[Rfam]
RNA sequence: GGAUGUGACGGUGAUCUUGCUGCAACAUCUGUCACCCCAUUGAUUGCCAGGGUUGAUUUGACUGGUCCAGCUGGAUAGGCAGGUGUCUCCUUUCUCCCUCACUGCUCCAUGUGCAUCUCCCUUGAAGCUGCGCACUGGUCGAAAAGGAUGACCAUCUCCCAUAGAGAAGUACCAGUCUUCGGUCAAGGGUAUAUGAGAAGCUGCAUUCCCCUACUAGAACCUCCAAACAAGCUCUCAAGGUUCAUUUGCAGGAGAAUGUAGAGUAAUCAAGCUUCCAAGACUCCUGACACUUCCAAAUGAGGUGCUGCAUGUGGCAGUCUGCCUUUCUUU
Numbered sequence: 001g002g003a004u005g006u007g008a009c010g011g012u013g014a015u016c017u018u019g020c021u022g023c024a025a026c027a028u029c030u031g032u033c034a035c036c037c038c039a040u041u042g043a044u045u046g047c048c049a050g051g052g053u054u055g056a057u058u059u060g061a062c063u064g065g066u067c068c069a070g071c072u073g074g075a076u077a078g079g080c081a082g083g084u085g086u087c088u089c090c091u092u093u094c095u096c097c098c099u100c101a102c103u104g105c106u107c108c109a110u111g112u113g114c115a116u117c118u119c120c121c122u123u124g125a126a127g128c129u130g131c132g133c134a135c136u137g138g139u140c141g142a143a144a145a146g147g148a149u150g151a152c153c154a155u156c157u158c159c160c161a162u163a164g165a166g167a168a169g170u171a172c173c174a175g176u177c178u179u180c181g182g183u184c185a186a187g188g189g190u191a192u193a194u195g196a197g198a199a200g201c202u203g204c205a206u207u208c209c210c211c212u213a214c215u216a217g218a219a220c221c222u223c224c225a226a227a228c229a230a231g232c233u234c235u236c237a238a239g240g241u242u243c244a245u246u247u248g249c250a251g252g253a254g255a256a257u258g259u260a261g262a263g264u265a266a267u268c269a270a271g272c273u274u275c276c277a278a279g280a281c282u283c284c285u286g287a288c289a290c291u292u293c294c295a296a297a298u299g300a301g302g303u304g305c306u307g308c309a310u311g312u313g314g315c316a317g318u319c320u321g322c323c324u325u326u327c328u329u330u
Stems, first nucleotide, its partner, number of pairs: 001108003005102004010097002013093002019089001025086009035074002037070001042067004046062001048060001117169001118167002121164001122138002125136001127135001139161001141159001146157003200272003206266002209263001211261004221254004228248004295330003299325005304318005
RNA: 7SK RNA